mir-219 microRNA precursor family: a 79-nucleotide RNA sequence from Betta splendens.
The match comes from Rfam's covariance-model search (71 bits).
[Rfam]
RNA sequence: UCUGGAGUUGAUUGUCCAAACGCAAUUCUUGUGUUAGUUUGUCAUAUCCAGGAGUUGUGGAUGGACAUCAUGCCCCAGA
Numbered sequence: 001u002c003u004g005g006a007g008u009u010g011a012u013u014g015u016c017c018a019a020a021c022g023c024a025a026u027u028c029u030u031g032u033g034u035u036a037g038u039u040u041g042u043c044a045u046a047u048c049c050a051g052g053a054g055u056u057g058u059g060g061a062u063g064g065a066c067a068u069c070a071u072g073c074c075c076c077a078g079a
Base pairs, nucleotide, nucleotide: 002078003077004076005075007073009070010069011068012067014066015065016064017063018062021059022058023057024056025055026054027053028052029051030050031049